[Rfam]
RNA: BsrG
RNA sequence: GCAACUACAUAAAGCGGAUGGGCGGUUGGCCAUCUCCCGUAAGGAAGAAGGGAGGUGGUAUAAAAAUGACGACAUAUGAAGCAAUUAUCAUUGCACUGACAUUAGGUUUAGUUCUAGUAAAUGGACUGGCACUUGUUGUGCAAAUCGUCAAAGAAAUGAGAAAAAAGUAACCGUCCCACGCUCGACCAAAAGUUUAGGAUAGGUUACUUUAACUAAAUAUUUCCUGGUCAGCCGCACUUUAUGCGGCAUGUAUGUUGCUAUAGGCAGAGUGUUGGUAGCACUCUGU
Numbered sequence: 001g002c003a004a005c006u007a008c009a010u011a012a013a014g015c016g017g018a019u020g021g022g023c024g025g026u027u028g029g030c031c032a033u034c035u036c037c038c039g040u041a042a043g044g045a046a047g048a049a050g051g052g053a054g055g056u057g058g059u060a061u062a063a064a065a066a067u068g069a070c071g072a073c074a075u076a077u078g079a080a081g082c083a084a085u086u087a088u089c090a091u092u093g094c095a096c097u098g099a100c101a102u103u104a105g106g107u108u109u110a111g112u113u114c115u116a117g118u119a120a121a122u123g124g125a126c127u128g129g130c131a132c133u134u135g136u137u138g139u140g141c142a143a144a145u146c147g148u149c150a151a152a153g154a155a156a157u158g159a160g161a162a163a164a165a166a167g168u169a170a171c172c173g174u175c176c177c178a179c180g181c182u183c184g185a186c187c188a189a190a191a192g193u194u195u196a197g198g199a200u201a202g203g204u205u206a207c208u209u210u211a212a213c214u215a216a217a218u219a220u221u222u223c224c225u226g227g228u229c230a231g232c233c234g235c236a237c238u239u240u241a242u243g244c245g246g247c248a249u250g251u252a253u254g255u256u257g258c259u260a261u262a263g264g265c266a267g268a269g270u271g272u273u274g275g276u277a278g279c280a281c282u283c284u285g286u
Stems, first nucleotide, its partner, number of pairs: 001258005006252003010248001013182004019178004024172004030058003034054005068149005081096001192213003232246004264286010